[Rfam]
RNA sequence: UUCUUAUCAAGAGAGGCGGAGGGACAUGGCCCGAUGAAGCCUCAGCGACCACAGGCAGAUGCCUGCACGGUGCUACAUCCAGCGGGUGGGAAACCUGAGAGAUAAGAA
Numbered sequence: 001u002u003c004u005u006a007u008c009a010a011g012a013g014a015g016g017c018g019g020a021g022g023g024a025c026a027u028g029g030c031c032c033g034a035u036g037a038a039g040c041c042u043c044a045g046c047g048a049c050c051a052c053a054g055g056c057a058g059a060u061g062c063c064u065g066c067a068c069g070g071u072g073c074u075a076c077a078u079c080c081a082g083c084g085g086g087u088g089g090g091a092a093a094c095c096u097g098a099g100a101g102a103u104a105a106g107a108a
Base pairs, nucleotide, nucleotide: 001108002107003106004105005104006103007102008101013043014042015041016040017039021032022031023030027081028080029079044074045073046072047071049070050069052065053064054063078100083097084096085095086094087093

Rfam assigns this 108-nucleotide RNA sequence from Aneurinibacillus danicus to the family "SAM riboswitch aptamer (S box leader)".
The source organism's lineage runs through Bacteria, Bacillota, Bacilli, Caryophanales and Aneurinibacillus.
The family's consensus secondary structure is taken from published work.
A search with the family's covariance model found it, with a score of 86 bits.